[Rfam]
RNA sequence: ACGACCCACCCAUCACUCGGAUCGUCCGGCACGUACCUGCCGGUGAAGGGAAUGUUUG
Numbered sequence: 001a002c003g004a005c006c007c008a009c010c011c012a013u014c015a016c017u018c019g020g021a022u023c024g025u026c027c028g029g030c031a032c033g034u035a036c037c038u039g040c041c042g043g044u045g046a047a048g049g050g051a052a053u054g055u056u057u058g
Stems, first nucleotide, its partner, number of pairs: 009050003013046003026043006

Rfam assigns this 58-nucleotide RNA from Aeromicrobium sp. to the family "msiK RNA". Pairs were carried over by alignment from the consensus structure, which is taken from published work. The match comes from Rfam's covariance-model search (55 bits). The source organism's lineage runs through Bacteria, Bacillati, Actinomycetota, Propionibacteriales and Aeromicrobium. Rfam 15.1 lists 1,374 matches to the family in 1,364 species.